[Rfam]
RNA sequence: AUCUUAUACAGAUGUAUAGAUGCAAGACAAUUUAGCAUCUCCCUUUAAGGUAAUUUAUUUCAGAAGCUCUAGCGACAAACUUCAUUGUUUUGAUUAAAAAAUCAAUGAAUUGGAAUUAAUUUUUCAGUUGAAAUGAGGUGAGAGAGAGUGGAAUGGGUUAACCGUAAGACCCUGAGUUGAAAAACUCUAAAAUUGAUCUAAAAAUGGAAUUUCUUUAUUUUCUUAUUUUUAGUUGCGGUUCG
Number, nucleotide and partner (000 for none) at each position: 001a051002u050003c049004u048005u047006a046007u000008a044009c000010a040011g039012a038013u037014g036015u035016a000017u034018a033019g032020a031021u030022g028023c000024a000025a000026g000027a000028c022029a000030a021031u020032u019033u018034a017035g015036c014037a013038u012039c011040u010041c000042c000043c000044u008045u000046u006047a005048a004049g003050g002051u001052a000053a000054u000055u000056u000057a000058u000059u000060u000061c000062a000063g000064a000065a000066g149067c148068u147069c146070u145071a000072g000073c142074g000075a000076c000077a000078a000079a000080c138081u137082u136083c135084a134085u133086u132087g000088u000089u000090u000091u000092g000093a000094u000095u000096a000097a000098a000099a000100a000101a000102u000103c000104a000105a000106u000107g000108a129109a128110u000111u126112g125113g124114a123115a122116u000117u000118a000119a000120u000121u000122u115123u114124u113125c112126a111127g000128u109129u108130g000131a000132a086133a085134u084135g083136a082137g081138g080139u000140g000141a000142g073143a000144g000145a070146g069147a068148g067149u066150g000151g000152a000153a000154u000155g172156g171157g170158u169159u168160a000161a239162c238163c237164g236165u235166a234167a193168g159169a158170c157171c156172c155173u000174g187175a186176g185177u184178u183179g000180a000181a000182a000183a178184a177185c176186u175187c174188u000189a000190a000191a000192a000193u167194u000195g000196a000197u000198c232199u231200a230201a229202a228203a227204a226205u225206g224207g222208a221209a000210u000211u000212u000213c000214u000215u000216u000217a000218u000219u000220u000221u208222c207223u000224u206225a205226u204227u203228u202229u201230u200231a199232g198233u000234u166235g165236c164237g163238g162239u161240u000241c000242g000
RNA: IS605-orfB-I RNA